The record is a 52-nucleotide sequence, which matches "L31-Gammaproteobacteria ribosomal protein leader" in Rfam. By type it is a cis-regulatory leader. On this family, see Eckert and Weinberg, BMC Microbiol 2020: "Discovery of 20 novel ribosomal leader candidates in bacteria and archaea". It is one of the family's seed sequences. Clan: Ribosomal Protein L31 Leader clan.

[Rfam]
RNA sequence: CGCGUGGUGUCUGGCGUUAGGGCUGGAAGAGCGACGCGGCCUUCACUGAGGU
Numbered sequence: 001c002g003c004g005u006g007g008u009g010u011c012u013g014g015c016g017u018u019a020g021g022g023c024u025g026g027a028a029g030a031g032c033g034a035c036g037c038g039g040c041c042u043u044c045a046c047u048g049a050g051g052u
Base pairs, nucleotide, nucleotide: 001038002037003036004035005034007032008031010027011026012025013024014023015022